[Rfam]
RNA sequence: AUAUUCGUAAAGAAGAUAACUCAUAUAAUAUUGACGAUAAGGGUCAAAAGUUUCUACCGAGAUGCCGUAAAUAUCUUGACUAUGAGUAAAUGCUAACAUAAU
Number, nucleotide and partner (000 for none) at each position: 001a000002u000003a000004u000005u000006c000007g000008u000009a000010a000011a000012g000013a000014a000015g000016a000017u000018a000019a087020c086021u085022c084023a083024u082025a081026u000027a000028a000029u049030a000031u047032u046033g045034a044035c043036g000037a000038u000039a000040a000041g000042g000043g035044u034045c033046a032047a031048a000049a029050g000051u000052u000053u000054c000055u000056a000057c000058c078059g077060a076061g075062a074063u073064g072065c000066c000067g000068u000069a000070a000071a000072u064073a063074u062075c061076u060077u059078g058079a000080c000081u025082a024083u023084g022085a021086g020087u019088a000089a000090a000091u000092g000093c000094u000095a000096a000097c000098a000099u000100a000101a000102u000